[Rfam]
RNA: Group II catalytic intron D1-D4-3
RNA sequence: CCCACCGCGAGGCGGGAUCUGAAGGAAGCCGAAGGCAAAAUGCUGGCCUGACGAACAGGAAGUGGAUUAGGCGGCGCAGCGGGGUAAGGCGUCCAAUAUCGCCAAAGCCCGAUACUUGCACGAAACGCUGCGACGUAUAUCCGACAGGCAUAAGCAGGAAGGUCGCGCGA
Numbered sequence: 001c002c003c004a005c006c007g008c009g010a011g012g013c014g015g016g017a018u019c020u021g022a023a024g025g026a027a028g029c030c031g032a033a034g035g036c037a038a039a040a041u042g043c044u045g046g047c048c049u050g051a052c053g054a055a056c057a058g059g060a061a062g063u064g065g066a067u068u069a070g071g072c073g074g075c076g077c078a079g080c081g082g083g084g085u086a087a088g089g090c091g092u093c094c095a096a097u098a099u100c101g102c103c104a105a106a107g108c109c110c111g112a113u114a115c116u117u118g119c120a121c122g123a124a125a126c127g128c129u130g131c132g133a134c135g136u137a138u139a140u141c142c143g144a145c146a147g148g149c150a151u152a153a154g155c156a157g158g159a160a161g162g163u164c165g166c167g168c169g170a
Stems, first nucleotide, its partner, number of pairs: 001016003005012002030169002035163002041156004046149005063143004071136003075132007082110004088103004